Notes:
Rfam assigns this 76-nucleotide RNA sequence from Niastella vici to the family "tRNA". Pairs were carried over by alignment from the consensus structure, which is taken from published work.

RNA sequence: GAGCAGGUACUCAAUGCUGGUGGAGAGAUUGGUCUGCAAAACCAAUGUAACAUGGGUUCAAUUCCCAUCCUGCUCU
Numbered sequence: 001g002a003g004c005a006g007g008u009a010c011u012c013a014a015u016g017c018u019g020g021u022g023g024a025g026a027g028a029u030u031g032g033u034c035u036g037c038a039a040a041a042c043c044a045a046u047g048u049a050a051c052a053u054g055g056g057u058u059c060a061a062u063u064c065c066c067a068u069c070c071u072g073c074u075c076u
Base pairs, nucleotide, nucleotide: 001075002074003073004072005071006070007069010027011026012025029045030044031043032042033041052068053067054066055065056064